[Rfam]
RNA sequence: AGUUUUGCCCAGUGGCAGUAUUGUAGCCAAUGAGGUUUAUCUGAGGCACGAUUAUUCAGGGUUGAAAACUUUUCCCAAUACCCCUCUGUGACGACUUGCAAUAUAAUCGGCACUGGCAAUCUUUUUUUUUUUUUUUUAAUG
Numbered sequence: 001a002g003u004u005u006u007g008c009c010c011a012g013u014g015g016c017a018g019u020a021u022u023g024u025a026g027c028c029a030a031u032g033a034g035g036u037u038u039a040u041c042u043g044a045g046g047c048a049c050g051a052u053u054a055u056u057c058a059g060g061g062u063u064g065a066a067a068a069c070u071u072u073u074c075c076c077a078a079u080a081c082c083c084c085u086c087u088g089u090g091a092c093g094a095c096u097u098g099c100a101a102u103a104u105a106a107u108c109g110g111c112a113c114u115g116g117c118a119a120u121c122u123u124u125u126u127u128u129u130u131u132u133u134u135u136u137u138a139a140u141g
Stems, first nucleotide, its partner, number of pairs: 020052005026047003034042002086116002088113003092109003096105001130141001132139002
U4 spliceosomal RNA: a 141-nucleotide RNA sequence from Otolemur garnettii. The source organism's lineage runs through Eukaryota, Teleostomi, Tetrapoda, Theria and Otolemur. By type it is a spliceosomal small nuclear RNA.